[Rfam]
RNA sequence: AAGUGUUGCAGCUCUUCUAGAAUUGGUCUAGCAGGUCUUCGGGUUUUUAACUGGAAACCCUC
Dot-bracket structure: .................................(((.(((((.(....).))))).)))...
Numbered sequence: 001a002a003g004u005g006u007u008g009c010a011g012c013u014c015u016u017c018u019a020g021a022a023u024u025g026g027u028c029u030a031g032c033a034g035g036u037c038u039u040c041g042g043g044u045u046u047u048u049a050a051c052u053g054g055a056a057a058c059c060c061u062c
Stems, first nucleotide, its partner, number of pairs: 034059003038055005044049001
Rfam assigns this 62-nucleotide RNA sequence from Pongo abelii to the family "U7 small nuclear RNA".
Rfam 15.1 lists 10,439 matches to the family in 569 species.
On this family, see Spycher et al., Nucleic Acids Res 1994: "3' end processing of mouse histone pre-mRNA: evidence for additional base-pairing between U7 snRNA and pre-mRNA".
The source organism's lineage runs through Eukaryota, Craniata, Vertebrata, Gnathostomata and Pongo.
Animal histone pre-mRNAs are spliced by a different mechanism than nuclear pre-mRNAs and self-splicing introns. This processing involves the U7 snRNP, which contains only one RNA species: U7. The 5' end of U7 RNA is thought to base-pair to a conserved spacer element downstream of the cleavage site in histone pre-mRNA. This family contains a number of annotated U7 pseudogenes.